The record is a 45-nucleotide RNA sequence from Conger conger, which matches "Histone 3' UTR stem-loop" in Rfam.
Rfam links the family to the GO term mRNA 3'-end processing by stem-loop binding and cleavage.
Pairs were carried over by alignment from the consensus structure, which is taken from published work.
A search with the family's covariance model found it, with a score of 34 bits.
The organism belongs to Conger, within Eukaryota.
RNA sequence: UCAAAGGCUCUUUUAAGAGCCACCACCUCCUUAUACAAAGCGCAA
Numbered sequence: 001u002c003a004a005a006g007g008c009u010c011u012u013u014u015a016a017g018a019g020c021c022a023c024c025a026c027c028u029c030c031u032u033a034u035a036c037a038a039a040g041c042g043c044a045a
Stems, first nucleotide, its partner, number of pairs: 006021006